[Rfam]
RNA sequence: GUAAAAUAAAAAAGCUGUCCAAAGACAGCAGGUAUCGCCAGAUAUAAAGGGGUUUUGCCCCGCCUGCCGAGGAUGAGCGCUCAAAGAUCGCAAUGCGACGUUUUGCGCCUCUUCCCGGCUGCCGGGGAGAGGCUUUUUUAUCUGAAAA
Numbered sequence: 001g002u003a004a005a006a007u008a009a010a011a012a013a014g015c016u017g018u019c020c021a022a023a024g025a026c027a028g029c030a031g032g033u034a035u036c037g038c039c040a041g042a043u044a045u046a047a048a049g050g051g052g053u054u055u056u057g058c059c060c061c062g063c064c065u066g067c068c069g070a071g072g073a074u075g076a077g078c079g080c081u082c083a084a085a086g087a088u089c090g091c092a093a094u095g096c097g098a099c100g101u102u103u104u105g106c107g108c109c110u111c112u113u114c115c116c117g118g119c120u121g122c123c124g125g126g127g128a129g130a131g132g133c134u135u136u137u138u139u140a141u142c143u144g145a146a147a148a
Stems, first nucleotide, its partner, number of pairs: 028067006034043003107133010
RNA: Ribosomal protein L10 leader